[Rfam]
RNA sequence: UACGAAUAGUAAGUGGGGAGUGGGACAGAAAUGAUAUUUUCGCAAAAUUUAUUUCGUCGUCCCACCCCAACUUGCAUUGUCUGUAGAAAUUGGGAAUCCAAUUUCUCUUUGUUGGGGCCCCGCCGGCAAGGUUGACUAGAAUUGAAAAAAGCUUGUUACAAGCGCAUUUUCGUUCAGUCAACUACUGCCAAUAUAACUUUGUAGAGCAUUGAACAUUGAUUUAU
Numbered sequence: 001u002a003c004g005a006a007u008a009g010u011a012a013g014u015g016g017g018g019a020g021u022g023g024g025a026c027a028g029a030a031a032u033g034a035u036a037u038u039u040u041c042g043c044a045a046a047a048u049u050u051a052u053u054u055c056g057u058c059g060u061c062c063c064a065c066c067c068c069a070a071c072u073u074g075c076a077u078u079g080u081c082u083g084u085a086g087a088a089a090u091u092g093g094g095a096a097u098c099c100a101a102u103u104u105c106u107c108u109u110u111g112u113u114g115g116g117g118c119c120c121c122g123c124c125g126g127c128a129a130g131g132u133u134g135a136c137u138a139g140a141a142u143u144g145a146a147a148a149a150a151g152c153u154u155g156u157u158a159c160a161a162g163c164g165c166a167u168u169u170u171c172g173u174u175c176a177g178u179c180a181a182c183u184a185c186u187g188c189c190a191a192u193a194u195a196a197c198u199u200u201g202u203a204g205a206g207c208a209u210u211g212a213a214c215a216u217u218g219a220u221u222u223a224u
Base pairs, nucleotide, nucleotide: 001015002014003013016068017067018066020065021064022063023062024061025060026059028055029054030053031052032051033050034049036048037047038046039045040044070084071083074080075079085106086105087104088103089102090101091100092099108195110193111192112191113190114189115188117186133180134179135178136177137176139175140174141173142172144171145170146169147168148167151163152162153161154160201224202223203222204221205220207218208217

This 224-nucleotide sequence from Staphylococcus aureus belongs to the Rfam family "Staphylococcus sRNA 35 (srn_0335)". The base pairs follow the family's consensus structure, which was predicted with RNAfold. By type it is a small RNA. Rfam 15.1 lists 67 matches to the family in 8 species. Lineage of the source: Bacteria > Bacilli > Staphylococcaceae > Staphylococcus > Staphylococcus aureus. For this family Rfam cites "Staphylococcus aureus Transcriptome Architecture: From Laboratory to Infection-Mimicking Conditions" (Mader et al., PLoS Genet, 2016).